[Rfam]
RNA sequence: UACCGGUCCCCUCGCAAUGAUCAGCUGUGAACCCCGCCAGGCCCGGAAGGGAGCAACGGUAGCAGUGACAUCAUGUGCCGGGGUGUGGCUGGUUUGA
Numbered sequence: 001u002a003c004c005g006g007u008c009c010c011c012u013c014g015c016a017a018u019g020a021u022c023a024g025c026u027g028u029g030a031a032c033c034c035c036g037c038c039a040g041g042c043c044c045g046g047a048a049g050g051g052a053g054c055a056a057c058g059g060u061a062g063c064a065g066u067g068a069c070a071u072c073a074u075g076u077g078c079c080g081g082g083g084u085g086u087g088g089c090u091g092g093u094u095u096g097a
Base pairs, nucleotide, nucleotide: 004091005090006089007088008087010083011082012081013080014079015075017074018073019072020071021070024066025065026064027063028062034059035058036057042051043050044049
Source information
This 97-nucleotide RNA sequence from Pseudomaricurvus sp. HS19 belongs to the Rfam family "Bacterial small signal recognition particle RNA". Clan: SRP clan. By type it is a non-coding RNA gene. The organism belongs to Pseudomaricurvus, within Bacteria.